A member of the RNA family "antisense RNA of dnaA mRNA" from Vibrio sp. 99-8-1, 81 nucleotides long.

RNA sequence: UUUUGCGUCUGGUUUAUUAUCCACAAUGGCGUUGCCUACCGCAUGAAGCAAGUGAGUUUUACCUAAACCGGUACCACCAUA
Numbered sequence: 001u002u003u004u005g006c007g008u009c010u011g012g013u014u015u016a017u018u019a020u021c022c023a024c025a026a027u028g029g030c031g032u033u034g035c036c037u038a039c040c041g042c043a044u045g046a047a048g049c050a051a052g053u054g055a056g057u058u059u060u061a062c063c064u065a066a067a068c069c070g071g072u073a074c075c076a077c078c079a080u081a
Stems, first nucleotide, its partner, number of pairs: 004043004011036003016032002020029002052077003056074002061072003
Dot-bracket structure: ...((((...(((..((..((......)).)).)))...))))........(((.((...(((......))))))))....
Lineage of the source: Bacteria > Pseudomonadati > Gammaproteobacteria > Vibrionales > Vibrio.